[Rfam]
Rfam assigns this 116-nucleotide RNA from Brachypodium distachyon to the family "MIR5070 microRNA precursor family". Its family is annotated with RISC complex and miRNA-mediated post-transcriptional gene silencing in the Gene Ontology. Its Rfam clan is "MIR2863 microRNA precursor clan". The family's consensus secondary structure was predicted with RNAalifold. It scores 114 bits against the family's covariance model. Rfam 15.1 lists 266 matches to the family in 8 species.

RNA sequence: CAGGGUACCCUUUGACCCUCCUUAGUUCAAUCAAAUGAACUAAAGUUGUAAAAUAAAACAACUUUUUGGAAAACUAGUUCAUCUGUUUGAACUAAAGAGGGUCAAUGGGUACCCUG
Numbered sequence: 001c002a003g004g005g006u007a008c009c010c011u012u013u014g015a016c017c018c019u020c021c022u023u024a025g026u027u028c029a030a031u032c033a034a035a036u037g038a039a040c041u042a043a044a045g046u047u048g049u050a051a052a053a054u055a056a057a058a059c060a061a062c063u064u065u066u067u068g069g070a071a072a073a074c075u076a077g078u079u080c081a082u083c084u085g086u087u088u089g090a091a092c093u094a095a096a097g098a099g100g101g102u103c104a105a106u107g108g109g110u111a112c113c114c115u116g
Stems, first nucleotide, its partner, number of pairs: 002115009012105009022095009032085002035082008